[Rfam]
RNA: PreQ1 (pre queuosine) riboswitch aptamer
Organism: Lysinibacillus composti
RNA sequence: AAGGAAGAGGUUCUUAGCGGAUACCCUCUAUAAAAAACUAAGGAGAA
Numbered sequence: 001a002a003g004g005a006a007g008a009g010g011u012u013c014u015u016a017g018c019g020g021a022u023a024c025c026c027u028c029u030a031u032a033a034a035a036a037a038c039u040a041a042g043g044a045g046a047a
Stems, first nucleotide, its partner, number of pairs: 006029005015040002